[Rfam]
The record is a 74-nucleotide RNA from Trifolium medium, which matches "MIR5272 microRNA precursor family" in Rfam.

RNA sequence: UUGAAGGUAAAUUGACUUAUGUUUGGAUACACUAAUGCAAAAGUGAUUCUUAUCAAUUAAUGUUGUUUGGAUAU
Numbered sequence: 001u002u003g004a005a006g007g008u009a010a011a012u013u014g015a016c017u018u019a020u021g022u023u024u025g026g027a028u029a030c031a032c033u034a035a036u037g038c039a040a041a042a043g044u045g046a047u048u049c050u051u052a053u054c055a056a057u058u059a060a061u062g063u064u065g066u067u068u069g070g071a072u073a074u
Stems, first nucleotide, its partner, number of pairs: 011061005017055001021053002025049004030045004
A search with the family's covariance model found it, with a score of 73 bits. Rfam 15.1 lists 271 matches to the family in 4 species. Rfam links the family to the GO terms RISC complex and miRNA-mediated post-transcriptional gene silencing.